[Rfam]
A member of the RNA family "MIR812 microRNA precursor family" from Oryza sativa, 205 nucleotides long.

RNA sequence: UUUAAGUGUGACCAUAAAUUUUCGCGUCCAACUUUAAUCAUCUGUCUCAUUUGAAUUUUUUUUAUAAUUAGUAUUUUUAUUGUUAUGAGAUGAUAAAACAUGAAAAGUACUUUACUCGUGGUUUAUGUUUUAAAUUUUUUUUAAAAAAAUAUCAAAUAAGACGGACGGUCAAAGUUGGACGCAGAAAACCAUGACUACAUUUAAA
Numbered sequence: 001u002u003u004a005a006g007u008g009u010g011a012c013c014a015u016a017a018a019u020u021u022u023c024g025c026g027u028c029c030a031a032c033u034u035u036a037a038u039c040a041u042c043u044g045u046c047u048c049a050u051u052u053g054a055a056u057u058u059u060u061u062u063u064a065u066a067a068u069u070a071g072u073a074u075u076u077u078u079a080u081u082g083u084u085a086u087g088a089g090a091u092g093a094u095a096a097a098a099c100a101u102g103a104a105a106a107g108u109a110c111u112u113u114a115c116u117c118g119u120g121g122u123u124u125a126u127g128u129u130u131u132a133a134a135u136u137u138u139u140u141u142u143a144a145a146a147a148a149a150u151a152u153c154a155a156a157u158a159a160g161a162c163g164g165a166c167g168g169u170c171a172a173a174g175u176u177g178g179a180c181g182c183a184g185a186a187a188a189c190c191a192u193g194a195c196u197a198c199a200u201u202u203a204a205a
Base pairs, nucleotide, nucleotide: 027179028178029177030176031175032174033173034172035171037169038168039167041165042164043163044162045161046160047159049157050156

The base pairs follow the family's consensus structure, which was predicted with RNAalifold. The source organism's lineage runs through Eukaryota, Viridiplantae, Poaceae, Oryzinae and Oryza sativa. The match comes from Rfam's covariance-model search (174 bits).